[Rfam]
RNA sequence: CAACACAUACGGCCUAGUUCCGAUAUUCUCGGAAGCGGGGGAACCAAUCUUUUGGGGUUAAUCCUGAGUGAUCAGGAGGGAUGAGGAAAUGUCUUCUCUGCCAUCCUACCCGUCAGCUAACCUCGUCGGCCAAAGCAGGGAAGGUCA
Numbered sequence: 001c002a003a004c005a006c007a008u009a010c011g012g013c014c015u016a017g018u019u020c021c022g023a024u025a026u027u028c029u030c031g032g033a034a035g036c037g038g039g040g041g042a043a044c045c046a047a048u049c050u051u052u053u054g055g056g057g058u059u060a061a062u063c064c065u066g067a068g069u070g071a072u073c074a075g076g077a078g079g080g081a082u083g084a085g086g087a088a089a090u091g092u093c094u095u096c097u098c099u100g101c102c103a104u105c106c107u108a109c110c111c112g113u114c115a116g117c118u119a120a121c122c123u124c125g126u127c128g129g130c131c132a133a134a135g136c137a138g139g140g141a142a143g144g145u146c147a
Stems, first nucleotide, its partner, number of pairs: 011131004018034005035126006045054002055111003063076004079106004